[Rfam]
RNA: TD-1 RNA
RNA sequence: AUUAAAUUGCCGAGUUUGCCUUGCAAACUAAAUUAUUAUAUGCCGUUUCUCAUUGCAUUACGAAACGGCUGGAAUUCAUCAAUGCUAGAUUUUUGAUAAAAUCUGCGCUUGAUGAAUUUAUAG
Numbered sequence: 001a002u003u004a005a006a007u008u009g010c011c012g013a014g015u016u017u018g019c020c021u022u023g024c025a026a027a028c029u030a031a032a033u034u035a036u037u038a039u040a041u042g043c044c045g046u047u048u049c050u051c052a053u054u055g056c057a058u059u060a061c062g063a064a065a066c067g068g069c070u071g072g073a074a075u076u077c078a079u080c081a082a083u084g085c086u087a088g089a090u091u092u093u094u095g096a097u098a099a100a101a102u103c104u105g106c107g108c109u110u111g112a113u114g115a116a117u118u119u120a121u122a123g
Stems, first nucleotide, its partner, number of pairs: 014028006042069008074117009084108002088103006